RNA sequence: GUUAUGCUACGAUGAAUUAUGAAAUGUUGUCUUCGCAUGUCAGACUUCAGAGAUACUCUUUCGAGUAUCGAUGAGAAGACAUUUCAUUCUUUGUGCAAGUU
Numbered sequence: 001g002u003u004a005u006g007c008u009a010c011g012a013u014g015a016a017u018u019a020u021g022a023a024a025u026g027u028u029g030u031c032u033u034c035g036c037a038u039g040u041c042a043g044a045c046u047u048c049a050g051a052g053a054u055a056c057u058c059u060u061u062c063g064a065g066u067a068u069c070g071a072u073g074a075g076a077a078g079a080c081a082u083u084u085c086a087u088u089c090u091u092u093g094u095g096c097a098a099g100u101u
Stems, first nucleotide, its partner, number of pairs: 001101001003099001005097003052069006
Small nucleolar RNA R64/Z200 family: a 101-nucleotide sequence from Musa balbisiana. The match comes from Rfam's covariance-model search (58 bits).